[Rfam]
RNA sequence: UUGGAUGAAACACAUGUGGAUCCCUCAUUUUAAAAAUAAAUCUCACAUAAAAUGGUAGGACCCACAUGUGUAUCACCUAA
Numbered sequence: 001u002u003g004g005a006u007g008a009a010a011c012a013c014a015u016g017u018g019g020a021u022c023c024c025u026c027a028u029u030u031u032a033a034a035a036a037u038a039a040a041u042c043u044c045a046c047a048u049a050a051a052a053u054g055g056u057a058g059g060a061c062c063c064a065c066a067u068g069u070g071u072a073u074c075a076c077c078u079a080a
Stems, first nucleotide, its partner, number of pairs: 001080004006075003010071009023058001026054007